[Rfam]
RNA sequence: AAGCAACACUCUGUGGCAGAUGAUCAGAACUGUCUGACACAGUUUGAGCUUGCUAUAGCAACAAAAUCUAAACUAUUGAGGUGGUUUCUCCUCUAUGAGACAAGAUGUUAUAUAGACUUCAUGUAA
Dot-bracket structure: ........(((((((.((((((........)))))).))))....)))...............((.((((...(((...(.(....((((......))))...).)...))))))).)).......
RNA: Small nucleolar RNA SNORA28